[Rfam]
Rfam assigns this 58-nucleotide RNA from Streptomyces hundungensis to the family "msiK RNA". By type it is a cis-regulatory element. Lineage of the source: Bacteria > Actinomycetota > Actinomycetes > Streptomycetaceae > Streptomyces.
Nucleotides: 058
Stems, first nucleotide, its partner, number of pairs: 009050004014045002026043006
Number, partner (000 for none) and nucleotide at each position: 001000c002000c003000a004000c005000u006000u007000c008000u009050c010049c011048c012047u013000c014045u015044a016000c017000u018000c019000g020000g021000a022000u023000c024000g025000u026043c027042c028041g029040g030039c031038a032000c033000g034000u035000u036000c037000c038031u039030g040029c041028c042027g043026g044015u045014g046000a047012a048011g049010g050009g051000a052000c053000a054000c055000a056000u057000c058000a